Notes:
Small nucleolar SNORD12/SNORD106: a 94-nucleotide sequence from Megalops atlanticus. Rfam 15.1 lists 2,264 matches to the family in 650 species. Rfam classes the family as a C/D-box small nucleolar RNA. NCBI's taxonomy places the organism under Eukaryota, Bilateria, Gnathostomata, Elopiformes, Megalops. The match comes from Rfam's covariance-model search (64 bits). Its family is annotated with RNA processing and nucleolus in the Gene Ontology. The family is grouped with related families in Rfam's "SNORD12 clan".

RNA sequence: ACUGUGGUUAAUGAUGCUCAAACUUUUUUCCCCAUCUUAUCGACCAUGGUGAUACAUUGCUGAAAAUUAAGCCAACUCUGUCUGAAACCACAGU
Numbered sequence: 001a002c003u004g005u006g007g008u009u010a011a012u013g014a015u016g017c018u019c020a021a022a023c024u025u026u027u028u029u030c031c032c033c034a035u036c037u038u039a040u041c042g043a044c045c046a047u048g049g050u051g052a053u054a055c056a057u058u059g060c061u062g063a064a065a066a067u068u069a070a071g072c073c074a075a076c077u078c079u080g081u082c083u084g085a086a087a088c089c090a091c092a093g094u
Stems, first nucleotide, its partner, number of pairs: 001094009